The record is a 126-nucleotide RNA from Oceanobacillus bengalensis, which matches "PyrR binding site" in Rfam. Rfam's curators write: This family represents the PyrR binding site and terminator structure. A search with the family's covariance model found it, with a score of 72 bits. On this family, see Bonner et al., Nucleic Acids Res 2001: "Molecular recognition of pyr mRNA by the Bacillus subtilis attenuation regulatory protein PyrR". Pairs were carried over by alignment from the consensus structure, which is taken from published work. Lineage of the source: Bacteria > Bacillati > Bacilli > Caryophanales > Oceanobacillus.
RNA sequence: GGUACCUUUAAUUCAGUCCAGAGAGGCUGACAAGGACUACGGAAAUAAUGAAAAAUGAUACGAGUAUAUCGUUUUUCAUUAUGGAAUCGAGGCUUCUUGUCAGUAAAUGGCAAGAGGCCUCUUUUC
Numbered sequence: 001g002g003u004a005c006c007u008u009u010a011a012u013u014c015a016g017u018c019c020a021g022a023g024a025g026g027c028u029g030a031c032a033a034g035g036a037c038u039a040c041g042g043a044a045a046u047a048a049u050g051a052a053a054a055a056u057g058a059u060a061c062g063a064g065u066a067u068a069u070c071g072u073u074u075u076u077c078a079u080u081a082u083g084g085a086a087u088c089g090a091g092g093c094u095u096c097u098u099g100u101c102a103g104u105a106a107a108u109g110g111c112a113a114g115a116g117g118c119c120u121c122u123u124u125u126c
Stems, first nucleotide, its partner, number of pairs: 005035004013030006046081014089121014